RNA sequence: CAGGCCGAGAGGCGCUGCGACGGAUCCUCGAUCCGCCACGCUCGGCCUGUUGGUAAAGACACAAGGGCGCCUCCGUCGU
Numbered sequence: 001c002a003g004g005c006c007g008a009g010a011g012g013c014g015c016u017g018c019g020a021c022g023g024a025u026c027c028u029c030g031a032u033c034c035g036c037c038a039c040g041c042u043c044g045g046c047c048u049g050u051u052g053g054u055a056a057a058g059a060c061a062c063a064a065g066g067g068c069g070c071c072u073c074c075g076u077c078g079u
Stems, first nucleotide, its partner, number of pairs: 002048007021035006